[Rfam]
RNA sequence: AAAGUGCUACUCAAGAAGCAUAAUCCAAUGCACUUGAUACCAAGUCUUGAGCAGAAAUUGGUAGCAACUAUGCUAAGCGUAGACAGGAAAGUAAUAGGCCGUAACGAUAGAGCUCCGUUAAUUUGAUUAUCAGAGUGGUCGAUAGUUUAAUUCUCCUAAAAGACAACACUAGAUUCCUCACUAUGGGUAAAAGAAAUUUAGCACUCUCGGAGUCAAAGAGUA
Numbered sequence: 001a002a003a004g005u006g007c008u009a010c011u012c013a014a015g016a017a018g019c020a021u022a023a024u025c026c027a028a029u030g031c032a033c034u035u036g037a038u039a040c041c042a043a044g045u046c047u048u049g050a051g052c053a054g055a056a057a058u059u060g061g062u063a064g065c066a067a068c069u070a071u072g073c074u075a076a077g078c079g080u081a082g083a084c085a086g087g088a089a090a091g092u093a094a095u096a097g098g099c100c101g102u103a104a105c106g107a108u109a110g111a112g113c114u115c116c117g118u119u120a121a122u123u124u125g126a127u128u129a130u131c132a133g134a135g136u137g138g139u140c141g142a143u144a145g146u147u148u149a150a151u152u153c154u155c156c157u158a159a160a161a162g163a164c165a166a167c168a169c170u171a172g173a174u175u176c177c178u179c180a181c182u183a184u185g186g187g188u189a190a191a192a193g194a195a196a197u198u199u200a201g202c203a204c205u206c207u208c209g210g211a212g213u214c215a216a217a218g219a220g221u222a
Stems, first nucleotide, its partner, number of pairs: 012036004018031004026187001038089001040087002044084004048079002050074004056069001058067003110214001112213006132207006138164003143158003169201007177193002
Record summary:
The family of this 222-nucleotide RNA from Hydra vulgaris is "Group II catalytic intron D1-D4-6". A search with the family's covariance model found it, with a score of 119 bits. Rfam 15.1 lists 1,617 matches to the family in 661 species. The base pairs follow the family's consensus structure.